[Rfam]
RNA: SAM (S-adenosyl methionine) riboswitch aptamer
Organism: Yimella sp. RIT 621
RNA sequence: GGUCAUGAGCGUCAGCGACAAGCCCCGGCUCGCUGGCCGGCAACCCUCCACCGCGGUGGGGUGCCCCGGGUGAAGACCUGGCCGGACGGUGCAGAUCGCCGCCCGGCAAGCGCGGACG
Number, nucleotide and partner (000 for none) at each position: 001g078002g077003u076004c075005a000006u000007g000008a000009g038010c000011g037012u036013c035014a034015g033016c032017g000018a000019c000020a000021a030022g029023c000024c000025c000026c000027g000028g000029c022030u021031c000032g016033c015034u014035g013036g012037c011038c009039g065040g064041c063042a000043a000044c061045c060046c059047u000048c056049c055050a000051c000052c000053g000054c000055g049056g048057u000058g000059g046060g045061g044062u000063g041064c040065c039066c000067c000068g000069g000070g000071u000072g000073a000074a000075g004076a003077c002078c001079u000080g000081g107082c106083c105084g104085g103086a000087c101088g100089g099090u098091g000092c000093a000094g000095a000096u000097c000098g090099c089100c088101g087102c000103c085104c084105g083106g082107c081108a000109a000110g000111c000112g000113c000114g000115g000116a000117c000118g000